[Rfam]
RNA: MIR168 microRNA precursor family
RNA sequence: UUACCGGCGGUCUCUAAUUCGCUUGGUGCAGGUCGGGAACUGAUUGGCUGUUCCUUAUAUUGGAUUGAAUUUUAUUUUGAUUUAAGCCAGAUGGCGGGGCGUGAUUGGAGGAAGCGCGAAUCGGAUCCCGCCUUGCAUCAACUGAAUCGGAGACCGCGGUGAAG
Numbered sequence: 001u002u003a004c005c006g007g008c009g010g011u012c013u014c015u016a017a018u019u020c021g022c023u024u025g026g027u028g029c030a031g032g033u034c035g036g037g038a039a040c041u042g043a044u045u046g047g048c049u050g051u052u053c054c055u056u057a058u059a060u061u062g063g064a065u066u067g068a069a070u071u072u073u074a075u076u077u078u079g080a081u082u083u084a085a086g087c088c089a090g091a092u093g094g095c096g097g098g099g100c101g102u103g104a105u106u107g108g109a110g111g112a113a114g115c116g117c118g119a120a121u122c123g124g125a126u127c128c129c130g131c132c133u134u135g136c137a138u139c140a141a142c143u144g145a146a147u148c149g150g151a152g153a154c155c156g157c158g159g160u161g162a163a164g
Stems, first nucleotide, its partner, number of pairs: 013151002017147004023141010034130005040124006